[Rfam]
RNA: Mammalian CPEB3 ribozyme
Organism: Laticauda laticaudata
RNA sequence: AGAGGUUAUUGGGGGGCCUAGAAGGAGCGUUCAACUCGUCGGCCCCUGUCAGGUAUCUGUUUACCUGCGAAUCUUCU
Numbered sequence: 001a002g003a004g005g006u007u008a009u010u011g012g013g014g015g016g017c018c019u020a021g022a023a024g025g026a027g028c029g030u031u032c033a034a035c036u037c038g039u040c041g042g043c044c045c046c047u048g049u050c051a052g053g054u055a056u057c058u059g060u061u062u063a064c065c066u067g068c069g070a071a072u073c074u075u076c077u
Stems, first nucleotide, its partner, number of pairs: 013046006020077005026072001027039003050067006
Dot-bracket structure: ............((((((.[[[[[.[(((.......))).))))))...((((((......))))))....]]]]]]